[Rfam]
RNA sequence: UAUUUAGUGUAAGUAUGUCUCAUGCAAUAUUUGGGAUAUAUUUAUACCAAAA
Numbered sequence: 001u002a003u004u005u006a007g008u009g010u011a012a013g014u015a016u017g018u019c020u021c022a023u024g025c026a027a028u029a030u031u032u033g034g035g036a037u038a039u040a041u042u043u044a045u046a047c048c049a050a051a052a
Base pairs, nucleotide, nucleotide: 007047008046009045010044011043012042014040015039016038018036019035020034021033022031